Shown here is a 36-nucleotide RNA, a member of the family "DUF805b RNA". Clan: DUF805 clan. It is annotated as a cis-regulatory element. It is one of the family's seed sequences.
[Rfam]
RNA sequence: AAGGCGGAACCUGAAAAGCCUAUAACAGAGUAGGAC
Numbered sequence: 001a002a003g004g005c006g007g008a009a010c011c012u013g014a015a016a017a018g019c020c021u022a023u024a025a026c027a028g029a030g031u032a033g034g035a036c
Base pairs, nucleotide, nucleotide: 002021003020004019005018011034012033